[Rfam]
The family of this 187-nucleotide sequence from Lysinibacillus telephonicus is "Lysine riboswitch aptamer". For this family Rfam cites "Riboswitches Control Fundamental Biochemical Pathways in Bacillus subtilis and Other Bacteria" (Mandal et al., Cell, 2003).

RNA sequence: GAGUGAGGUAGAGGUGCGUUAUUUAUUAGUUUCUUAGGGAGUAUAGAGCGAACAAUGAUCUAAGAAAGAAGGAAAUAUCGCCGAAGUAUGAAAGUAGGCUCACUACUUCAUGCUGGGUCUGCAGUGAAUAACUGCAGGACUGUCUCAGCUGGUUCUCCCAAACCAACUGAGGUGUGCUAUCUCAAAC
Numbered sequence: 001g002a003g004u005g006a007g008g009u010a011g012a013g014g015u016g017c018g019u020u021a022u023u024u025a026u027u028a029g030u031u032u033c034u035u036a037g038g039g040a041g042u043a044u045a046g047a048g049c050g051a052a053c054a055a056u057g058a059u060c061u062a063a064g065a066a067a068g069a070a071g072g073a074a075a076u077a078u079c080g081c082c083g084a085a086g087u088a089u090g091a092a093a094g095u096a097g098g099c100u101c102a103c104u105a106c107u108u109c110a111u112g113c114u115g116g117g118u119c120u121g122c123a124g125u126g127a128a129u130a131a132c133u134g135c136a137g138g139a140c141u142g143u144c145u146c147a148g149c150u151g152g153u154u155c156u157c158c159c160a161a162a163c164c165a166a167c168u169g170a171g172g173u174g175u176g177c178u179a180u181c182u183c184a185a186a187c
Stems, first nucleotide, its partner, number of pairs: 006182006016081003020077005031066008085114008115141002118138008143172006